Shown here is a 132-nucleotide RNA sequence from Anaerobacillus alkalidiazotrophicus, a member of the family "Glycine riboswitch aptamer". A search with the family's covariance model found it, with a score of 62 bits.
RNA sequence: AUGAGAUCAAGGGGAGAGACUGCAAAGGUUUAUGAGUUAUUAAUUAAUAAACCGAAACUUAGCUUUGAUGCAGCGCCGAAGGAGCAAGCGUUUUAUCGUGAAUCUCUCAGGCAAAAAGACUCUUGUUUGACG
Numbered sequence: 001a002u003g004a005g006a007u008c009a010a011g012g013g014g015a016g017a018g019a020c021u022g023c024a025a026a027g028g029u030u031u032a033u034g035a036g037u038u039a040u041u042a043a044u045u046a047a048u049a050a051a052c053c054g055a056a057a058c059u060u061a062g063c064u065u066u067g068a069u070g071c072a073g074c075g076c077c078g079a080a081g082g083a084g085c086a087a088g089c090g091u092u093u094u095a096u097c098g099u100g101a102a103u104c105u106c107u108c109a110g111g112c113a114a115a116a117a118g119a120c121u122c123u124u125g126u127u128u129g130a131c132g
Base pairs, nucleotide, nucleotide: 006127008125009124010123011122012121013120020073021072022071023070075112076111077110078108079107082106083105084104088099089098
Notes:
Gene Ontology term of the family: glycine biosynthetic process.